[Rfam]
RNA sequence: GGCCAAGACUUGAAGUAGAGUAGAUUGGUAGGAUCAGCUGACCAUACUAAUGUACUCUAUUUCAAGUUUGCCC
Dot-bracket structure: (((..((((.((((((((((((..((((((.(.((....)).).))))))..)))))))))))).))))))).